[Rfam]
RNA: Small nucleolar RNA SNORD103/SNORD85
Organism: Daphoenositta chrysoptera
RNA sequence: UCUGGCAGUGAUGCCACCCUUGCCCUCACUGAGAACUCUGUUCCAUAAUGAGCCUCUGUCCAGCAGCUGAGCCAGA
Numbered sequence: 001u002c003u004g005g006c007a008g009u010g011a012u013g014c015c016a017c018c019c020u021u022g023c024c025c026u027c028a029c030u031g032a033g034a035a036c037u038c039u040g041u042u043c044c045a046u047a048a049u050g051a052g053c054c055u056c057u058g059u060c061c062a063g064c065a066g067c068u069g070a071g072c073c074a075g076a
Stems, first nucleotide, its partner, number of pairs: 001076006